The record is a 339-nucleotide sequence from Ruminococcus sp. CAG:353, which matches "Bacterial RNase P class A" in Rfam. Taxonomically the source falls in Ruminococcus (Bacteria, Bacillota, Clostridia, Oscillospiraceae).
RNA sequence: CGAGUAAGCUAUGCGGUUGAACGCUUUUUGCGUUAGGAAAGUCCGGGCAUCACAGAGCAGGGUAGCUGCUAACGGCAGCCGAGGGUGACCUUAGGGAAAGUGCAACAGAGAUAUACCGCUGAUUUUUUCAGUAAGGGUGGAAAGGCGAGGUAAGAGCUCACCGGGGCAGCGGAGACGCUGCUGCCAUGUAAACCCUAUCCGAUGCAACGUCUAUUGGUACGUGUACGUCAAUGUCUGCUCGGCAGGCGUACCGUAAAGACGGCUAAAGCGUUUCGGCGACGAUCCGCUCAGAUAGAUUUCCGCACACGACAAAACCCGGCUUAUCGGCUUAGUCGCAUU
Numbered sequence: 001c002g003a004g005u006a007a008g009c010u011a012u013g014c015g016g017u018u019g020a021a022c023g024c025u026u027u028u029u030g031c032g033u034u035a036g037g038a039a040a041g042u043c044c045g046g047g048c049a050u051c052a053c054a055g056a057g058c059a060g061g062g063u064a065g066c067u068g069c070u071a072a073c074g075g076c077a078g079c080c081g082a083g084g085g086u087g088a089c090c091u092u093a094g095g096g097a098a099a100g101u102g103c104a105a106c107a108g109a110g111a112u113a114u115a116c117c118g119c120u121g122a123u124u125u126u127u128u129c130a131g132u133a134a135g136g137g138u139g140g141a142a143a144g145g146c147g148a149g150g151u152a153a154g155a156g157c158u159c160a161c162c163g164g165g166g167c168a169g170c171g172g173a174g175a176c177g178c179u180g181c182u183g184c185c186a187u188g189u190a191a192a193c194c195c196u197a198u199c200c201g202a203u204g205c206a207a208c209g210u211c212u213a214u215u216g217g218u219a220c221g222u223g224u225a226c227g228u229c230a231a232u233g234u235c236u237g238c239u240c241g242g243c244a245g246g247c248g249u250a251c252c253g254u255a256a257a258g259a260c261g262g263c264u265a266a267a268g269c270g271u272u273u274c275g276g277c278g279a280c281g282a283u284c285c286g287c288u289c290a291g292a293u294a295g296a297u298u299u300c301c302g303c304a305c306a307c308g309a310c311a312a313a314a315c316c317c318g319g320c321u322u323a324u325c326g327g328c329u330u331a332g333u334c335g336c337a338u339u
Stems, first nucleotide, its partner, number of pairs: 001335003005331006011324001012304005020034005039322003043319005048204004055240004060200005065079005080094001081092004095195002100193002102189003116136002118132005144162002147159003163184001164182002167180005208261004216252006232244004268287003273282003